This 254-nucleotide RNA from Agrilus planipennis belongs to the Rfam family "R2 RNA element". Taxonomically the source falls in Agrilus (Eukaryota, Protostomia, Pterygota, Endopterygota). This family represents the 3' UTR region of the R2 retrotransposable element. Gene Ontology term of the family: regulation of reverse transcription. Rfam 15.1 lists 3,698 matches to the family in 74 species.

RNA sequence: AUAUCAUCAGUAGGCUUUUAUACCUAAAACAUUACAUGCUAACCUAGCCGAGUUGAAACUGCAUAAGCUUACAUACAUAAGUUUACAGAAAUGAGUAAUCCUUGCGGGCGAAGAGGACAUUAAUUGGUCCUAGAACGGCCUGAGGUGGAGGGGUUUUAAUCGGUAGGUCCGAGGACUUCUUCCUCGGGAAUCCGACACUACCCAGUUGUACGGACGGCUGGGCGUCUUUCGAAGAUUUCCCCUCUUCCACGAAA
Numbered sequence: 001a002u003a004u005c006a007u008c009a010g011u012a013g014g015c016u017u018u019u020a021u022a023c024c025u026a027a028a029a030c031a032u033u034a035c036a037u038g039c040u041a042a043c044c045u046a047g048c049c050g051a052g053u054u055g056a057a058a059c060u061g062c063a064u065a066a067g068c069u070u071a072c073a074u075a076c077a078u079a080a081g082u083u084u085a086c087a088g089a090a091a092u093g094a095g096u097a098a099u100c101c102u103u104g105c106g107g108g109c110g111a112a113g114a115g116g117a118c119a120u121u122a123a124u125u126g127g128u129c130c131u132a133g134a135a136c137g138g139c140c141u142g143a144g145g146u147g148g149a150g151g152g153g154u155u156u157u158a159a160u161c162g163g164u165a166g167g168u169c170c171g172a173g174g175a176c177u178u179c180u181u182c183c184u185c186g187g188g189a190a191u192c193c194g195a196c197a198c199u200a201c202c203c204a205g206u207u208g209u210a211c212g213g214a215c216g217g218c219u220g221g222g223c224g225u226c227u228u229u230c231g232a233a234g235a236u237u238u239c240c241c242c243u244c245u246u247c248c249a250c251g252a253a254a
Stems, first nucleotide, its partner, number of pairs: 040119001043116003124253002127250002144248002147245002150241003160195004168188008198224001201222004